[Rfam]
RNA sequence: UGGAUAGCCCCGUGUUGUGGUCAGACCCCCGACCCCGACGGCAAUACGGGGCUUCCCU
Numbered sequence: 001u002g003g004a005u006a007g008c009c010c011c012g013u014g015u016u017g018u019g020g021u022c023a024g025a026c027c028c029c030c031g032a033c034c035c036c037g038a039c040g041g042c043a044a045u046a047c048g049g050g051g052c053u054u055c056c057c058u
Stems, first nucleotide, its partner, number of pairs: 002057002007052012020039003
RNA: F6 TB sRNA